[Rfam]
Nucleotides: 174
Base pairs, nucleotide, nucleotide: 020052021051022050023049024048025047026046027045061093062092063091064090065089070082071081072080073079094112095111096110097109098108099107118164119163120162121161122160123159124158132149133148134147135146136145137144138143
Number, partner (000 for none) and nucleotide at each position: 001000a002000u003000a004000g005000c006000a007000c008000u009000a010000a011000a012000a013000g014000c015000g016000c017000c018000u019000g020052a021051a022050c023049u024048a025047u026046u027045c028000a029000c030000a031000u032000g033000a034000g035000a036000c037000g038000a039000c040000a041000g042000g043000a044000u045027g046026a047025a048024u049023a050022g051021u052020u053000g054000a055000c056000g057000a058000g059000g060000a061093g062092g063091a064090g065089g066000g067000u068000u069000a070082u071081c072080g073079a074000u075000c076000u077000u078000u079073u080072c081071g082070g083000c084000g085000g086000a087000u088000a089065c090064c091063u092062c093061c094112c095111g096110a097109u098108u099107g100000c101000a102000c103000a104000u105000c106000u107099c108098a109097a110096u111095c112094g113000u114000a115000a116000u117000u118164c119163u120162u121161u122160a123159u124158u125000c126000a127000u128000a129000a130000a131000a132149c133148a134147g135146c136145g137144a138143g139000g140000c141000a142000a143138c144137u145136c146135g147134u148133u149132g150000g151000c152000c153000a154000a155000c156000u157000g158124a159123g160122u161121a162120a163119a164118g165000c166000a167000a168000g169000a170000u171000g172000a173000a174000u
The record is a 174-nucleotide sequence from Virgibacillus phasianinus, which matches "glmS glucosamine-6-phosphate activated ribozyme aptamer" in Rfam. This entry contains a glucosamine-6-phosphate activated ribozyme that is found in the mRNA for GlmS. GlmS is an enzyme that uses fructose-6-phosphate and glutamine to generate glucosamine-6-phosphate. The ribozyme catalyses self cleavage of the glmS mRNA that is thought to regulate GlmS activity. The source organism's lineage runs through Bacteria, Bacillati, Bacillota, Bacillaceae and Virgibacillus. By type it is a riboswitch. Its family is annotated with catalytic activity and regulation of gene expression in the Gene Ontology.